RNA sequence: UAGGUACAACAGACGAUAGCUUUAAAAAAGAGGAAAGUCCGAGCUGCUGUGAAGUAUGGUUCCAUUUAACGAAUGGCUAGAGUAAUCUAAGGGAAAGUGCAACAGAGAAUAGACCGCCCAUUUUGGGUAAGGGUGAAACGGUGAGGUAAGAGCUUACCAGACUUUUGAGCAAUCUUAAGUGCUUUGUAAACCCAACCUGCAGCAAGAAGAGUGUGGUAUUAACUUCACAUUAUUGCUCUUCGCUUGAGUGUUAAAGUAAUUUAACAAGUAGAUAAAUUAUCGUCAAAAACAAAACUCGGCUUAUGGUGUACCUAAUAC
Numbered sequence: 001u002a003g004g005u006a007c008a009a010c011a012g013a014c015g016a017u018a019g020c021u022u023u024a025a026a027a028a029a030g031a032g033g034a035a036a037g038u039c040c041g042a043g044c045u046g047c048u049g050u051g052a053a054g055u056a057u058g059g060u061u062c063c064a065u066u067u068a069a070c071g072a073a074u075g076g077c078u079a080g081a082g083u084a085a086u087c088u089a090a091g092g093g094a095a096a097g098u099g100c101a102a103c104a105g106a107g108a109a110u111a112g113a114c115c116g117c118c119c120a121u122u123u124u125g126g127g128u129a130a131g132g133g134u135g136a137a138a139c140g141g142u143g144a145g146g147u148a149a150g151a152g153c154u155u156a157c158c159a160g161a162c163u164u165u166u167g168a169g170c171a172a173u174c175u176u177a178a179g180u181g182c183u184u185u186g187u188a189a190a191c192c193c194a195a196c197c198u199g200c201a202g203c204a205a206g207a208a209g210a211g212u213g214u215g216g217u218a219u220u221a222a223c224u225u226c227a228c229a230u231u232a233u234u235g236c237u238c239u240u241c242g243c244u245u246g247a248g249u250g251u252u253a254a255a256g257u258a259a260u261u262u263a264a265c266a267a268g269u270a271g272a273u274a275a276a277u278u279a280u281c282g283u284c285a286a287a288a289a290c291a292a293a294a295c296u297c298g299g300c301u302u303a304u305g306g307u308g309u310a311c312c313u314a315a316u317a318c
Base pairs, nucleotide, nucleotide: 001314002313003312004311005310006309007308008307010305011304012284013283014282015281016280017279018278020030021029022028023027035302036301037300039299040298041297042296043295044202045201046200047199054226058197059196060195061194062076063075064074065073066072077091078089079088080087081086092193093192097191098190099187100186101185114132115131116128117127118126119125120124140158141157142156143155144154145153160182161180162179163178164177167174168173206241207240208239209238220232221231222230249266250265251264252263253262254261255260

Rfam assigns this 318-nucleotide RNA from Malaciobacter halophilus to the family "Bacterial RNase P class A".
The family's RNA type in Rfam is ribozyme.
Its family is annotated with ribonuclease P activity, tRNA processing and dimeric ribonuclease P complex in the Gene Ontology.